[Rfam]
RNA sequence: ACUGUUGAUUGCCAAACUUACUGUGAAGUAAGGACGGAAAGCCAUGGGUCUCAAGCAUUGUUGAGAUCGCCAGGUUGCUAAU
Dot-bracket structure: ...........((...((((((....))))))...))..((((.((((((....((...))...)))..)))))))......

About this RNA: The record is an 82-nucleotide RNA from Sulfurimonas lithotrophica, which matches "c-di-GMP-I riboswitch aptamer" in Rfam. The base pairs follow the family's consensus structure, which is taken from published work. Taxonomically the source falls in Sulfurimonas (Bacteria, Pseudomonadati, Campylobacterota, Campylobacterales).